[Rfam]
RNA sequence: CUGCUAUCCAGAAAGACCGAGGGACCAGGCCCGAUGACGUCUUGGCAACCGCCUUUGGGCCGGUGCCAACUCCUGUUCGGCCACGUUAGUGGGUCGAAGAAGAUAUCAG
Numbered sequence: 001c002u003g004c005u006a007u008c009c010a011g012a013a014a015g016a017c018c019g020a021g022g023g024a025c026c027a028g029g030c031c032c033g034a035u036g037a038c039g040u041c042u043u044g045g046c047a048a049c050c051g052c053c054u055u056u057g058g059g060c061c062g063g064u065g066c067c068a069a070c071u072c073c074u075g076u077u078c079g080g081c082c083a084c085g086u087u088a089g090u091g092g093g094u095c096g097a098a099g100a101a102g103a104u105a106u107c108a109g
Stems, first nucleotide, its partner, number of pairs: 001109003005105004013043005021032003026075004044067004049063002051060003071101001076098006

Record summary:
The record is a 109-nucleotide RNA from Hymenobacter ginkgonis, which matches "SAM riboswitch aptamer (S box leader)" in Rfam. The base pairs follow the family's consensus structure, which is taken from published work. Its family is annotated with regulation of gene expression in the Gene Ontology. The organism belongs to Hymenobacter, within Bacteria.